RNA sequence: UAAGGUGGGUAGGCUAUAGCAGAAGCACACAUGGCGCAGCCCUGUCAGAUUCUAGUGAAUCUGUGAAUACUACU
Numbered sequence: 001u002a003a004g005g006u007g008g009g010u011a012g013g014c015u016a017u018a019g020c021a022g023a024a025g026c027a028c029a030c031a032u033g034g035c036g037c038a039g040c041c042c043u044g045u046c047a048g049a050u051u052c053u054a055g056u057g058a059a060u061c062u063g064u065g066a067a068u069a070c071u072a073c074u
Stems, first nucleotide, its partner, number of pairs: 009042001012041004018074002021071002024068001025037002046063007
The family of this 74-nucleotide sequence from Alligator mississippiensis is "Mammalian CPEB3 ribozyme". Rfam links the family to the GO term RNA nuclease activity. A search with the family's covariance model found it, with a score of 52 bits. The family's consensus secondary structure is taken from published work.